Guanidine-II riboswitch aptamer (mini-ykkC): a 51-nucleotide sequence from alpha proteobacterium BAL199. Pairs were carried over by alignment from the consensus structure, which is taken from published work.
RNA sequence: GGCGCGGGACGACCCGGCAGCUUUCCUGCUCGAUCGAUGGGGACGACCCCA
Numbered sequence: 001g002g003c004g005c006g007g008g009a010c011g012a013c014c015c016g017g018c019a020g021c022u023u024u025c026c027u028g029c030u031c032g033a034u035c036g037a038u039g040g041g042g043a044c045g046a047c048c049c050c051a
Stems, first nucleotide, its partner, number of pairs: 001021001004018001005016004038051005
The organism belongs to Alphaproteobacteria, within Bacteria. About the family: Simpler in structure and has fewer highly conserved nucleotide positions than the ykkC-yxkD leader. Despite this each of its two stem-loop structures directly bind free guanidine. Therefore, mini-ykkC RNA motif represents a distinct class of guanidine-sensing RNAs.